[Rfam]
The family of this 162-nucleotide RNA sequence from Lactococcus allomyrinae is "leu/phe leader RNA from Lactococcus". The family's RNA type in Rfam is cis-regulatory leader. The base pairs follow the family's consensus structure, which is taken from published work. The organism belongs to Lactococcus, within Bacteria.
RNA sequence: AAUAAUUAAAAUUCAGAGGUCUAAAAAAUGAUUUACGCAUACAACACAUUUUUCUUGUUGUUUAAGAAGGAGGACUUACAUUAGCCUAUUUGGUGAAAUGUGUGAGUCCUCUUUGGCGUUAGUCAUUUUGAGGACGAUAAGACGUCCUCGGGGCGUCUUUUU
Number, nucleotide and partner (000 for none) at each position: 001a000002a000003u000004a000005a000006u000007u000008a000009a000010a000011a000012u000013u000014c000015a000016g000017a000018g000019g000020u000021c000022u000023a000024a000025a000026a000027a127028a126029u125030g124031a123032u122033u000034u000035a000036c000037g000038c000039a000040u000041a061042c060043a059044a058045c057046a000047c000048a055049u000050u000051u000052u000053u000054c000055u048056u000057g045058u044059u043060g042061u041062u000063u000064a000065a000066g000067a000068a000069g000070g000071a000072g109073g108074a000075c106076u105077u104078a103079c102080a101081u100082u095083a094084g000085c093086c092087u000088a000089u000090u000091u000092g086093g085094u083095g082096a000097a000098a000099u000100g081101u080102g079103u078104g077105a076106g075107u000108c073109c072110u000111c000112u000113u000114u000115g000116g000117c000118g000119u000120u000121a000122g032123u031124c030125a029126u028127u027128u000129u000130g149131a148132g147133g146134a145135c144136g143137a000138u000139a000140a000141g000142a000143c136144g135145u134146c133147c132148u131149c130150g000151g000152g000153g000154c000155g000156u000157c000158u000159u000160u000161u000162u000